[Rfam]
Description: Rfam assigns this 107-nucleotide RNA sequence from Syntrophotalea carbinolica to the family "TPP riboswitch aptamer (THI element)".
RNA sequence: CAUAACCGCUAGGGGCGUCAUUCUGUACUGAGAGUUUCGCAUAAGCGCAACAACCCUUGGAACCUGACCCGGAUCAUACCGGCGUAGGGAAGCGGUGUCGCAAGGCA
Numbered sequence: 001c002a003u004a005a006c007c008g009c010u011a012g013g014g015g016c017g018u019c020a021u022u023c024u025g026u027a028c029u030g031a032g033a034g035u036u037u038c039g040c041a042u043a044a045g046c047g048c049a050a051c052a053a054c055c056c057u058u059g060g061a062a063c064c065u066g067a068c069c070c071g072g073a074u075c076a077u078a079c080c081g082g083c084g085u086a087g088g089g090a091a092g093c094g095g096u097g098u099c100g101c102a103a104g105g106c107a
Stems, first nucleotide, its partner, number of pairs: 006095005011057004017028002035050002038047002063088004069082004
Vitamin B(1) in its active form thiamin pyrophosphate (TPP) is an essential coenzyme that is synthesised by coupling of pyrimidine and thiazole moieties in bacteria. Lineage of the source: Bacteria > Thermodesulfobacteriota > Desulfuromonadales > Syntrophotaleaceae > Syntrophotalea carbinolica.